[Rfam]
RNA sequence: AUCAAGACAAAGCUGUCACUGUGGCAGUCUCCCUUCCUAGCAUGGAAGAGCAUUUUCUUGUUUAUUGGCAAAGCUGUCACCAUUUAAUUGGUAUCAGAUUCUGACUUGCACAAGUAACAUUC
Numbered sequence: 001a002u003c004a005a006g007a008c009a010a011a012g013c014u015g016u017c018a019c020u021g022u023g024g025c026a027g028u029c030u031c032c033c034u035u036c037c038u039a040g041c042a043u044g045g046a047a048g049a050g051c052a053u054u055u056u057c058u059u060g061u062u063u064a065u066u067g068g069c070a071a072a073g074c075u076g077u078c079a080c081c082a083u084u085u086a087a088u089u090g091g092u093a094u095c096a097g098a099u100u101c102u103g104a105c106u107u108g109c110a111c112a113a114g115u116a117a118c119a120u121u122c
Stems, first nucleotide, its partner, number of pairs: 006033001011030001013027005059119004065113003068109004074097003079092004
Description:
The record is a 122-nucleotide sequence from Cnephaeus nilssonii, which matches "Small nucleolar RNA SNORA24" in Rfam. ACA24 is a member of the H/ACA class of snoRNA that guide the sites of modification of uridines to pseudouridines. The family's consensus secondary structure was predicted with RNAfold. Its family is annotated with RNA processing and nucleolus in the Gene Ontology. It is annotated as an H/ACA-box small nucleolar RNA.